This 84-nucleotide RNA from Molossus molossus belongs to the Rfam family "mir-544 microRNA precursor family". The match comes from Rfam's covariance-model search (70 bits). Pairs were carried over by alignment from the consensus structure, which was predicted with RNAalifold. Lineage of the source: Eukaryota > Craniata > Tetrapoda > Theria > Molossus.
[Rfam]
RNA sequence: AUCACCUGGAGAUUGUAUUAAUAUGCAGAUUCUAAUUAUGCAUCCCAAGUUCUGCAUUUCUAACACAUUUCCAGGUGAUGCAGA
Numbered sequence: 001a002u003c004a005c006c007u008g009g010a011g012a013u014u015g016u017a018u019u020a021a022u023a024u025g026c027a028g029a030u031u032c033u034a035a036u037u038a039u040g041c042a043u044c045c046c047a048a049g050u051u052c053u054g055c056a057u058u059u060c061u062a063a064c065a066c067a068u069u070u071c072c073a074g075g076u077g078a079u080g081c082a083g084a
Stems, first nucleotide, its partner, number of pairs: 003077003009071003014067003018063003021059001023057001025055005031049001033047001
Gene Ontology terms of the family: miRNA-mediated post-transcriptional gene silencing and RISC complex.